[Rfam]
A member of the RNA family "Group II catalytic intron D1-D4-2", 119 nucleotides long. From the family's description: Group II introns are found in rRNA, tRNA and mRNA of organelles in fungi, plants and protists, and also in mRNA in bacteria. Its family is annotated with Group II intron splicing in the Gene Ontology. Rfam's curators put it in the seed alignment.
RNA sequence: GAGAGAAGGUCUCUCGACUAAGAUGUACAGGCAUAUUAGUCAAACCGCCUUAUGGGGCUUAGUUUUCACGACUUGGUCUUGAGCGAUAAGGUAAAAGGCGGUACUACCAUUUGUAAGGU
Numbered sequence: 001g002a003g004a005g006a007a008g009g010u011c012u013c014u015c016g017a018c019u020a021a022g023a024u025g026u027a028c029a030g031g032c033a034u035a036u037u038a039g040u041c042a043a044a045c046c047g048c049c050u051u052a053u054g055g056g057g058c059u060u061a062g063u064u065u066u067c068a069c070g071a072c073u074u075g076g077u078c079u080u081g082a083g084c085g086a087u088a089a090g091g092u093a094a095a096a097g098g099c100g101g102u103a104c105u106a107c108c109a110u111u112u113g114u115a116a117g118g119u
Stems, first nucleotide, its partner, number of pairs: 001015005016041006023034004046118001048091006054080002057077003061073004098114004
Dot-bracket structure: (((((.....)))))((((((.((((....)))).))))))....(.((((((((.(((.((((.....)))).))).)).....))))))......((((.........))))...).